[Rfam]
RNA sequence: CGGCGGGCCAGGCCUCCCCAACGAGGCCCAGUCCAUCUGUGAGGAUGGGAGAC
Number, nucleotide and partner (000 for none) at each position: 001c000002g000003g000004c000005g000006g000007g000008c000009c000010a000011g028012g027013c026014c025015u024016c023017c000018c000019c000020a000021a000022c000023g016024a015025g014026g013027c012028c011029c000030a000031g000032u000033c048034c047035a046036u045037c044038u043039g000040u000041g000042a000043g038044g037045a036046u035047g034048g033049g000050a000051g000052a000053c000

The record is a 53-nucleotide sequence from a Caulobacteraceae bacterium, which matches "serC leader" in Rfam. This family is a putative regulatory RNA structure that is found upstream of the serC-serA operon in some alpha-proteobacteria. The source organism's lineage runs through Bacteria, Pseudomonadati, Alphaproteobacteria, Caulobacterales and Caulobacteraceae.